HNH endonuclease-associated RNA and ORF (HEARO) RNA: a 227-nucleotide RNA from Paenibacillus polymyxa.
It is annotated as a non-coding RNA gene.
The family's consensus secondary structure is taken from published work.
NCBI's taxonomy places the organism under Bacteria, Caryophanales, Paenibacillaceae, Paenibacillus, Paenibacillus polymyxa.
For this family Rfam cites "Exceptional structured noncoding RNAs revealed by bacterial metagenome analysis" (Weinberg et al., Nature, 2009).
The family has 139 seed sequences and 952 matches in Rfam 15.1.
RNA sequence: GUCAAUAACCCACCACUUACGAACAAAGUUCGUUGAAGUGGGGGCUUGUGAAAACAAACCUUUAUUGACUACCCUCAGUCCUUCAAGGACUACGUUGGUUGAGUUACGACACCUACGGAUGCUCCUCAAGUCCGUAGCAACUGUCGUGGAUGGUUAAAACCUCUGAUGGGUAGGAGCGGUGCUGUCCACCGAACAAGCUCUUCCAACUUUGGGUAUGAGGCAAUUAA
Number, nucleotide and partner (000 for none) at each position: 001g069002u068003c067004a066005a065006u064007a063008a062009c000010c044011c043012a000013c041014c040015a000016c000017u038018u037019a000020c000021g000022a000023a000024c000025a000026a000027a000028g000029u000030u000031c000032g000033u000034u000035g000036a000037a018038g017039u000040g014041g013042g000043g011044g010045c000046u057047u056048g055049u000050g000051a000052a000053a000054a000055c048056a047057a046058a000059c000060c000061u000062u008063u007064a006065u005066u004067g003068a002069c001070u000071a000072c213073c212074c211075u000076c000077a091078g090079u089080c088081c087082u000083u000084c000085a000086a000087g081088g080089a079090c078091u077092a000093c000094g207095u206096u205097g204098g203099u000100u000101g200102a199103g198104u197105u000106a000107c000108g000109a144110c143111a000112c000113c137114u136115a135116c134117g133118g132119a131120u130121g000122c000123u000124c220125c219126u218127c217128a216129a000130g120131u119132c118133c117134g116135u115136a114137g113138c000139a000140a000141c000142u000143g110144u109145c000146g189147u188148g187149g186150a185151u184152g183153g182154u181155u000156a000157a000158a180159a000160c000161c176162u175163c174164u173165g000166a171167u000168g000169g000170g000171u166172a000173g164174g163175a162176g161177c000178g000179g000180u158181g154182c153183u152184g151185u150186c149187c148188a147189c146190c000191g000192a000193a000194c000195a000196a000197g104198c103199u102200c101201u000202u000203c098204c097205a096206a095207c094208u000209u000210u000211g074212g073213g072214u000215a000216u128217g127218a126219g125220g124221c000222a000223a000224u000225u000226a000227a000